[Rfam]
Annotation:
The family of this 76-nucleotide sequence from Jaculus jaculus is "mir-3473 microRNA precursor family". Rfam 15.1 lists 1,094 matches to the family in 20 species. The base pairs follow the family's consensus structure, which was predicted with RNAalifold. The match comes from Rfam's covariance-model search (74 bits). The source organism's lineage runs through Eukaryota, Opisthokonta, Amniota, Dipodidae and Jaculus.
RNA sequence: ACUGCUAAGUCAUCUCUCCAGCCCUAAAAGAUAUUUUUUUAAAGAAAUUCAUGGGCUGGAGAGAUGGCUUAGCAGU
Numbered sequence: 001a002c003u004g005c006u007a008a009g010u011c012a013u014c015u016c017u018c019c020a021g022c023c024c025u026a027a028a029a030g031a032u033a034u035u036u037u038u039u040u041a042a043a044g045a046a047a048u049u050c051a052u053g054g055g056c057u058g059g060a061g062a063g064a065u066g067g068c069u070u071a072g073c074a075g076u
Stems, first nucleotide, its partner, number of pairs: 002075023